[Rfam]
Lysine riboswitch aptamer: a 180-nucleotide RNA from Domibacillus iocasae. NCBI's taxonomy places the organism under Bacteria, Bacilli, Caryophanales, Bacillaceae, Domibacillus. The match comes from Rfam's covariance-model search (122 bits).

RNA sequence: CAAUGAGGUAGAGGUUGCGAUAAUUAAAAGUAGUACACUGGAAGCUUGAUGGAGCUCUUGAUAGUGGUCGAAAGGAAUUAUCGCCGAAGCUCGAAGGAUCCAUUUUAUCUUUUGAGCUGGGUUUGCAUCGAACAGGUGUAAAACUGUCACAGGACUAUUCUGUGGAGAACUAUAAAGGGA
Numbered sequence: 001c002a003a004u005g006a007g008g009u010a011g012a013g014g015u016u017g018c019g020a021u022a023a024u025u026a027a028a029a030g031u032a033g034u035a036c037a038c039u040g041g042a043a044g045c046u047u048g049a050u051g052g053a054g055c056u057c058u059u060g061a062u063a064g065u066g067g068u069c070g071a072a073a074g075g076a077a078u079u080a081u082c083g084c085c086g087a088a089g090c091u092c093g094a095a096g097g098a099u100c101c102a103u104u105u106u107a108u109c110u111u112u113u114g115a116g117c118u119g120g121g122u123u124u125g126c127a128u129c130g131a132a133c134a135g136g137u138g139u140a141a142a143a144c145u146g147u148c149a150c151a152g153g154a155c156u157a158u159u160c161u162g163u164g165g166a167g168a169a170c171u172a173u174a175a176a177g178g179g180a
Stems, first nucleotide, its partner, number of pairs: 008173004017084009033069001036066005088118012119145002122142008147165007
Dot-bracket structure: .......((((.....(((((((((.......(..(((((.....................)))))..)......)))))))))...((((((((((((.......))))))))))))((.((((((((.....)))))))).)).(((((((.....)))))))....)))).......